[Rfam]
A member of the RNA family "THF (Tetrahydrofolate) riboswitch aptamer" from Liquorilactobacillus oeni, 96 nucleotides long.
For this family Rfam cites "A disconnect between high-affinity binding and efficient regulation by antifolates and purines in the tetrahydrofolate riboswitch" (Trausch and Batey, Chem Biol, 2014).
NCBI's taxonomy places the organism under Bacteria, Bacilli, Lactobacillales, Liquorilactobacillus, Liquorilactobacillus oeni.
RNA sequence: UUCGGGGUAGGAAAUAAGGCGUUAAGUGCUGGAAGGACGGAAUGUGUCUUCCAGACGAAAGAUAAAACCUGCGAUCUUAUUUCCGCAUUCGCCGCA
Numbered sequence: 001u002u003c004g005g006g007g008u009a010g011g012a013a014a015u016a017a018g019g020c021g022u023u024a025a026g027u028g029c030u031g032g033a034a035g036g037a038c039g040g041a042a043u044g045u046g047u048c049u050u051c052c053a054g055a056c057g058a059a060a061g062a063u064a065a066a067a068c069c070u071g072c073g074a075u076c077u078u079a080u081u082u083c084c085g086c087a088u089u090c091g092c093c094g095c096a
Stems, first nucleotide, its partner, number of pairs: 001096001003094003010084010020073003026056002029054008040090005060070002063067001
Rfam describes the family as follows. Tetrahydrofolate (THF) riboswitch was first reported for Ames et al. as an RNA motif in 5' untranslated (5'-UTR)regions of folate transport and biosynthesis genes in Firmicutes genomes. The family has 101 seed sequences and 747 matches in Rfam 15.1.